[Rfam]
RNA sequence: UGGAAGUCAGAUACUCAGAUGUAAGUGAGACGUACAUUUGACACAAUAACUUCCUAGAUAAAAUACCUACUUUCUGAUGACUGUAGUGACUAAGUUCCCACUACAGACAGAUACGAAGUGGACAAUC
Number, nucleotide and partner (000 for none) at each position: 001u000002g054003g053004a052005a051006g050007u049008c000009a000010g000011a000012u000013a000014c000015u041016c040017a039018g038019a000020u000021g000022u034023a033024a000025g031026u000027g000028a000029g000030a000031c025032g000033u023034a022035c000036a000037u000038u018039u017040g016041a015042c000043a000044c000045a000046a000047u000048a000049a007050c006051u005052u004053c003054c002055u000056a000057g000058a000059u000060a000061a000062a000063a000064u000065a000066c000067c121068u120069a119070c118071u117072u116073u115074c000075u000076g000077a000078u000079g000080a000081c106082u105083g104084u000085a000086g101087u100088g099089a000090c000091u000092a000093a000094g000095u000096u000097c000098c000099c088100a087101c086102u000103a000104c083105a082106g081107a000108c000109a000110g000111a000112u000113a000114c000115g073116a072117a071118g070119u069120g068121g067122a000123c000124a000125a000126u000127c000